Record summary:
This 72-nucleotide sequence from Virgibacillus sp. SK37 belongs to the Rfam family "Bacillus-plasmid RNA". The organism belongs to Virgibacillus, within Bacteria. The base pairs follow the family's consensus structure, which is taken from published work.
RNA sequence: UUUGUCAACGGUAAAUCGGACGGAAUGAGGAACGAAUGAGGGAGAAUUUAAGGAGUUGACAAAUAGCCUGCA
Numbered sequence: 001u002u003u004g005u006c007a008a009c010g011g012u013a014a015a016u017c018g019g020a021c022g023g024a025a026u027g028a029g030g031a032a033c034g035a036a037u038g039a040g041g042g043a044g045a046a047u048u049u050a051a052g053g054a055g056u057u058g059a060c061a062a063a064u065a066g067c068c069u070g071c072a
Stems, first nucleotide, its partner, number of pairs: 001063009